The family of this 79-nucleotide RNA sequence from Altererythrobacter xiamenensis is "Makes More Granules Regulator RNA (mmgR)". From the family's description: SuhB later renamed mmgR (makes more granules regulator) was a putative non-coding RNA found multiple times in the Agrobacterium tumefaciens genome and related alpha-proteobacteria. The source organism's lineage runs through Bacteria, Pseudomonadati, Alphaproteobacteria, Erythrobacteraceae and Altererythrobacter. Clan: suhB sRNA clan. It scores 49 bits against the family's covariance model. Rfam classes the family as a small RNA.

RNA sequence: AAGGCAUGCCUUUAAGGCAUCCUCUCCCAAAGACUUUCCAGCCCGGUCGAUAUUUCGGCCGGGCUUUUUCUUGUCCGCA
Numbered sequence: 001a002a003g004g005c006a007u008g009c010c011u012u013u014a015a016g017g018c019a020u021c022c023u024c025u026c027c028c029a030a031a032g033a034c035u036u037u038c039c040a041g042c043c044c045g046g047u048c049g050a051u052a053u054u055u056c057g058g059c060c061g062g063g064c065u066u067u068u069u070c071u072u073g074u075c076c077g078c079a
Stems, first nucleotide, its partner, number of pairs: 008018004041064009